[Rfam]
RNA sequence: AAUUUCCUUCGGGGUCGGGUGAAAUUCCCAAUCGGCGGUGAUGAGGUGUGAGCCUCUUAGUCCGUGACCCGUGCGGUUUUCAUGCCAAACGGUGGAUCUGGUGCAACUCCAGAGCCGACAGUUACAGUCUGGAUGGGAGAAGGAAUUU
Number, nucleotide and partner (000 for none) at each position: 001a000002a000003u000004u145005u144006c143007c142008u141009u140010c139011g000012g000013g000014g000015u000016c000017g029018g028019g027020u000021g000022a000023a000024a000025u000026u000027c019028c018029c017030a000031a128032u127033c117034g116035g065036c064037g063038g062039u000040g000041a000042u000043g000044a000045g000046g000047u000048g000049u000050g000051a000052g000053c000054c000055u000056c000057u000058u000059a000060g115061u114062c038063c037064g036065u035066g000067a000068c000069c092070c091071g090072u089073g000074c000075g000076g000077u000078u000079u000080u000081c000082a000083u000084g000085c000086c000087a000088a000089a072090c071091g070092g069093u000094g000095g000096a000097u113098c112099u111100g110101g109102u000103g000104c000105a000106a000107c000108u000109c101110c100111a099112g098113a097114g061115c060116c034117g033118a000119c131120a130121g129122u000123u000124a000125c000126a000127g032128u031129c121130u120131g119132g000133a000134u000135g000136g000137g000138a000139g010140a009141a008142g007143g006144a005145a004146u000147u000148u000
RNA: FMN riboswitch aptamer (RFN element)
Organism: Virgibacillus oceani